[Rfam]
Early nodulin 40: a 219-nucleotide sequence from Gossypium aridum.
It is annotated as a non-coding RNA gene.
It scores 79 bits against the family's covariance model.
Rfam links the family to the GO term nodulation.
Taxonomically the source falls in Gossypium (Eukaryota, Viridiplantae, Embryophyta, Euphyllophyta).
RNA sequence: AAAAAGCAUGGAAAGGGUUUAGGGCUAUGGAUUCCUCAAUUCACCUUCCUCCAAUGAAUUAAAAGCGCUUUUCUCUUGUGCUUCACUCACAUGGCUGCAUGCAUGGAGGGGGAGGAGGAGGAUAGGUUCCCACAGAGUAGCUAGCUAGCAGAGGCUUUGGCUAAUGCAGUGGCAAACCGGCAAGUCACACAAAGGCAAUGGACUCCAUCUAUGAGUUCU
Numbered sequence: 001a002a003a004a005a006g007c008a009u010g011g012a013a014a015g016g017g018u019u020u021a022g023g024g025c026u027a028u029g030g031a032u033u034c035c036u037c038a039a040u041u042c043a044c045c046u047u048c049c050u051c052c053a054a055u056g057a058a059u060u061a062a063a064a065g066c067g068c069u070u071u072u073c074u075c076u077u078g079u080g081c082u083u084c085a086c087u088c089a090c091a092u093g094g095c096u097g098c099a100u101g102c103a104u105g106g107a108g109g110g111g112g113a114g115g116a117g118g119a120g121g122a123u124a125g126g127u128u129c130c131c132a133c134a135g136a137g138u139a140g141c142u143a144g145c146u147a148g149c150a151g152a153g154g155c156u157u158u159g160g161c162u163a164a165u166g167c168a169g170u171g172g173c174a175a176a177c178c179g180g181c182a183a184g185u186c187a188c189a190c191a192a193a194g195g196c197a198a199u200g201g202a203c204u205c206c207a208u209c210u211a212u213g214a215g216u217u218c219u
Base pairs, nucleotide, nucleotide: 022052023051024050065177070172084166085165201217202216203215204214205213